[Rfam]
Nucleotides: 083
Base pairs, nucleotide, nucleotide: 012037013036018031019030020029021028022027040077041076042075043074047073048072049069050068051067056063057062
Number, partner (000 for none) and nucleotide at each position: 001000u002000a003000u004000u005000c006000a007000c008000a009000a010000g011000a012037g013036c014000a015000a016000a017000c018031c019030c020029g021028u022027c023000g024000a025000a026000a027022g028021a029020c030019g031018g032000u033000g034000a035000c036013g037012c038000a039000a040077a041076g042075c043074u044000a045000c046000a047073g048072g049069g050068g051067c052000u053000a054000a055000g056063c057062c058000g059000c060000a061000a062057g063056g064000u065000a066000u067051g068050c069049c070000a071000g072048c073047c074043a075042g076041u077040u078000g079000c080000c081000g082000u083000a